RNA: mir-1302 microRNA precursor family
Organism: Suricata suricatta
Nucleotides: 052
Base pairs, nucleotide, nucleotide: 006048007047008046009045010044011043012042014040015039016038018036019035020034021033022031
Number, partner (000 for none) and nucleotide at each position: 001000u002000u003000u004000u005000u006048a007047g008046u009045g010044u011043a012042a013000g014040u015039a016038u017000g018036u019035c020034c021033c022031a023000g024000g025000c026000a027000c028000u029000g030000a031022u032000u033021g034020g035019g036018g037000c038016a039015u040014a041000c042012u043011u044010a045009u046008a047007c048006u049000a050000a051000a052000a